[Rfam]
RNA sequence: AGAACCUUUAACACAGUCCCGAGAGGCUGAGAAGGAAAACGGAUGAAGAAGCCUAAGAUGAGAUUGUCUUAGAUUCUUACUGAACGAAAUCCUCCUGCUCUCCGGCAGGAGGAUUUUUUUAUU
Dot-bracket structure: ....(((((....(((((......))))).)))))...........((.((.((((((((....)))))))).)).)).......(((((((((((((......)))))))))))))......
A member of the RNA family "PyrR binding site" from Peribacillus deserti, 123 nucleotides long. The match comes from Rfam's covariance-model search (70 bits). NCBI's taxonomy places the organism under Bacteria, Bacillati, Bacilli, Caryophanales, Peribacillus. Rfam describes the family as follows. This family represents the PyrR binding site and terminator structure. This RNA structure is found upstream of a variety of genes involved in pyrimidine biosynthesis and transport. The alignment also includes a portion of the antiterminator structure.